Source information:
This 61-nucleotide RNA sequence from Pristionchus pacificus belongs to the Rfam family "mir-8364 microRNA precursor family". It scores 75 bits against the family's covariance model. Pairs were carried over by alignment from the consensus structure, which was predicted with RNAalifold.
RNA sequence: UCUUCAUUUCGCACACUCUCUCGCCGGUCAGAUAGGCGAGAGAGUGUGUGAAUUGAAGAUA
Number, nucleotide and partner (000 for none) at each position: 001u059002c058003u057004u056005c055006a054007u000008u000009u000010c050011g000012c048013a047014c046015a045016c044017u043018c000019u041020c040021u039022c038023g000024c000025c000026g000027g000028u000029c000030a000031g000032a000033u000034a000035g000036g000037c000038g022039a021040g020041a019042g000043a017044g016045u015046g014047u013048g012049u000050g010051a000052a000053u000054u006055g005056a004057a003058g002059a001060u000061a000